The record is a 90-nucleotide RNA from Desulfosporosinus acididurans, which matches "c-di-GMP-I riboswitch aptamer" in Rfam. The family's consensus secondary structure is taken from published work. GEMM was predicted in a large-scale screen for bacterial structured RNA regulatory elements. NCBI's taxonomy places the organism under Bacteria, Bacillati, Bacillota, Eubacteriales, Desulfosporosinus. A search with the family's covariance model found it, with a score of 64 bits.
[Rfam]
RNA sequence: ACCGUAAAUGGGCAAACCGCUUGAAAGAGUGGGAUGCAUAGCCAUAGGGUCUAAAUUUCUUAAAUGGAACAUGAUAGCCUGGUUGCUAUA
Numbered sequence: 001a002c003c004g005u006a007a008a009u010g011g012g013c014a015a016a017c018c019g020c021u022u023g024a025a026a027g028a029g030u031g032g033g034a035u036g037c038a039u040a041g042c043c044a045u046a047g048g049g050u051c052u053a054a055a056u057u058u059c060u061u062a063a064a065u066g067g068a069a070c071a072u073g074a075u076a077g078c079c080u081g082g083u084u085g086c087u088a089u090a
Base pairs, nucleotide, nucleotide: 012037013036017032018031019030020029021028022027040084041083042082043081046080047079048078049075050074051073056069057068058067059066